[Rfam]
RNA sequence: GCCGCCGAGGGGCGCUGCGACCACGACGAAGAUCGUGGCCAGGCUCGGUGGAAACCAUGGAUCGAACGGCGCCCGGUGCCC
Numbered sequence: 001g002c003c004g005c006c007g008a009g010g011g012g013c014g015c016u017g018c019g020a021c022c023a024c025g026a027c028g029a030a031g032a033u034c035g036u037g038g039c040c041a042g043g044c045u046c047g048g049u050g051g052a053a054a055c056c057a058u059g060g061a062u063c064g065a066a067c068g069g070c071g072c073c074c075g076g077u078g079c080c081c
Stems, first nucleotide, its partner, number of pairs: 002051007021038006
A member of the RNA family "SAH (S-adenosyl-L-homocysteine) riboswitch aptamer" from Novilysobacter defluvii, 81 nucleotides long. The organism belongs to Novilysobacter defluvii, within Bacteria. Rfam 15.1 lists 1,354 matches to the family in 1,132 species. A search with the family's covariance model found it, with a score of 54 bits.